Shown here is a 300-nucleotide sequence from Aptenodytes forsteri, a member of the family "Metazoan signal recognition particle RNA". NCBI's taxonomy places the organism under Eukaryota, Opisthokonta, Vertebrata, Teleostomi, Aptenodytes. Pairs were carried over by alignment from the consensus structure, which is taken from published work. Clan: SRP clan. Rfam describes the family as follows. The signal recognition particle (SRP) is a universally conserved ribonucleoprotein. It is involved in the co-translational targeting of proteins to membranes.
RNA sequence: GCCGGGCGCGGUGGCGCGCGCCUGUAGUCCCAGCUACUCGGGAGGCCGAGCCCGCCGGAUCGCUUGAGCCCAGGAGUUCUGGGCUGCAGUGCGCUAUGCCGAGCGGGCGUCCGCGCUAAGGCCGGCAUCAAUAUGGUGAGCCCCGGGGAGCCGGGGGACACCAGGUUGACUAAGGAGGGGUGAACCGGCCCAGGUCGGAGACGGAGCAGGUCAAAGCUCCCGUGCCGGUCAGUAGCGGGAUGGCGCCUGUGAACAGUCCCUGUAGCACAGCCCGGGCGAGAGAGCGGGACCCAGUUUCCU
Number, nucleotide and partner (000 for none) at each position: 001g046002c045003c044004g023005g022006g021007c020008g019009c018010g017011g000012u000013g000014g000015c000016g000017c010018g009019c008020g007021c006022c005023u004024g000025u000026a000027g000028u043029c042030c041031c000032a000033g000034c000035u000036a000037c000038u000039c000040g000041g030042g029043a028044g003045g002046c001047c000048g298049a297050g296051c000052c294053c000054g292055c000056c000057g000058g000059a000060u287061c286062g285063c284064u283065u282066g000067a000068g277069c276070c275071c274072a000073g272074g271075a000076g000077u000078u000079c270080u269081g268082g000083g266084c265085u264086g263087c262088a261089g260090u000091g258092c000093g257094c256095u255096a000097u253098g000099c251100c000101g000102a000103g250104c249105g248106g247107g246108c245109g244110u243111c239112c238113g000114c237115g236116c235117u234118a233119a000120g230121g229122c228123c227124g226125g225126c224127a223128u222129c168130a167131a166132u165133a000134u163135g162136g161137u160138g159139a000140g000141c156142c155143c154144c153145g152146g151147g000148g000149a000150g000151c146152c145153g144154g143155g142156g141157g000158a000159c138160a137161c136162c135163a134164g000165g132166u131167u130168g129169a000170c174171u000172a000173a000174g170175g000176a000177g220178g219179g218180g217181u216182g000183a000184a000185c000186c000187g212188g211189c210190c209191c000192a000193g000194g000195u204196c203197g202198g000199a000200g000201a000202c197203g196204g195205a000206g000207c000208a000209g190210g189211u188212c187213a000214a000215a000216g181217c180218u179219c178220c177221c000222g128223u127224g126225c125226c124227g123228g122229u121230c120231a000232g000233u118234a117235g116236c115237g114238g112239g111240a000241u000242g000243g110244c109245g108246c107247c106248u105249g104250u103251g099252a000253a097254c000255a095256g094257u093258c091259c000260c089261u088262g087263u086264a085265g084266c083267a000268c081269a080270g079271c074272c073273c000274g071275g070276g069277c068278g000279a000280g000281a000282g065283a064284g063285c062286g061287g060288g000289a000290c000291c000292c054293a000294g052295u000296u050297u049298c048299c000300u000